Shown here is a 115-nucleotide RNA from Oceanobacillus halophilus, a member of the family "epsC RNA". Lineage of the source: Bacteria > Bacilli > Caryophanales > Bacillaceae > Oceanobacillus.
[Rfam]
RNA sequence: UGGUGAUGUCAUACUUACCGUUAUCAAUGUAGGCACUCGGCUAUGCUGUGGGUUGUAAUCAACCUUAGACGCGUUCGUUGUCAGUAGUGUGGUGUGAGGGUGGGUUGGAUGCCCU
Numbered sequence: 001u002g003g004u005g006a007u008g009u010c011a012u013a014c015u016u017a018c019c020g021u022u023a024u025c026a027a028u029g030u031a032g033g034c035a036c037u038c039g040g041c042u043a044u045g046c047u048g049u050g051g052g053u054u055g056u057a058a059u060c061a062a063c064c065u066u067a068g069a070c071g072c073g074u075u076c077g078u079u080g081u082c083a084g085u086a087g088u089g090u091g092g093u094g095u096g097a098g099g100g101u102g103g104g105u106u107g108g109a110u111g112c113c114c115u
Stems, first nucleotide, its partner, number of pairs: 001020004007035004012031003036098004040093008050065006068082004102114004